[Rfam]
RNA sequence: AGGAUCAACUCUGGAGAGCGGCCCCGGUAAUCGCCCGGGCCCACCGAAGGGGCAGGCGGCCACACAGGGCUGCUAUCUCUCAGGUACCAAGGACAGAGGGGCGCGC
Numbered sequence: 001a002g003g004a005u006c007a008a009c010u011c012u013g014g015a016g017a018g019c020g021g022c023c024c025c026g027g028u029a030a031u032c033g034c035c036c037g038g039g040c041c042c043a044c045c046g047a048a049g050g051g052g053c054a055g056g057c058g059g060c061c062a063c064a065c066a067g068g069g070c071u072g073c074u075a076u077c078u079c080u081c082a083g084g085u086a087c088c089a090a091g092g093a094c095a096g097a098g099g100g101g102c103g104c105g106c
Base pairs, nucleotide, nucleotide: 006101009098010097011096012095013094020041021040022039023038043085044084045083046081047080050079051078052077056073057072058071059070060069
The record is a 106-nucleotide sequence from Massilia sp. Leaf139, which matches "Glycine riboswitch aptamer" in Rfam.
The match comes from Rfam's covariance-model search (53 bits).
Lineage of the source: Bacteria > Pseudomonadati > Pseudomonadota > Oxalobacteraceae > Massilia.